[Rfam]
RNA sequence: AUCUGGGUUGCGUGAGGGAUAGGAGUGAAAAUCCUUUUGUGCCGGUGUUCGGCAUAAAAGAUUGUAGUGGAUAGCCCGGCCCUUG
Numbered sequence: 001a002u003c004u005g006g007g008u009u010g011c012g013u014g015a016g017g018g019a020u021a022g023g024a025g026u027g028a029a030a031a032u033c034c035u036u037u038u039g040u041g042c043c044g045g046u047g048u049u050c051g052g053c054a055u056a057a058a059a060g061a062u063u064g065u066a067g068u069g070g071a072u073a074g075c076c077c078g079g080c081c082c083u084u085g
Base pairs, nucleotide, nucleotide: 016077017076018075020073021072025068026067030063031062032061033060036058037057038056039055040054041053042052043051
Flavo-1 RNA: an 85-nucleotide RNA sequence from Flavobacterium bizetiae. Rfam 15.1 lists 7,497 matches to the family in 411 species. It is annotated as a small RNA. The match comes from Rfam's covariance-model search (53 bits).